[Rfam]
The family of this 56-nucleotide sequence from Vigna radiata is "Small nucleolar RNA snoR60". The family is grouped with related families in Rfam's "SNORD101 clan". Lineage of the source: Eukaryota > Embryophyta > Spermatophyta > Phaseoleae > Vigna radiata. Gene Ontology terms of the family: RNA processing and nucleolus. It scores 49 bits against the family's covariance model. The family's consensus secondary structure was predicted with PFOLD. Rfam 15.1 lists 1,133 matches to the family in 227 species.

RNA sequence: UUGCAAAUGAUGAGUUACUCGGAUUCUUGGAUGAUGCAGGCCGAGAUUCUGAUGCA
Numbered sequence: 001u002u003g004c005a006a007a008u009g010a011u012g013a014g015u016u017a018c019u020c021g022g023a024u025u026c027u028u029g030g031a032u033g034a035u036g037c038a039g040g041c042c043g044a045g046a047u048u049c050u051g052a053u054g055c056a
Base pairs, nucleotide, nucleotide: 002056003055004054005053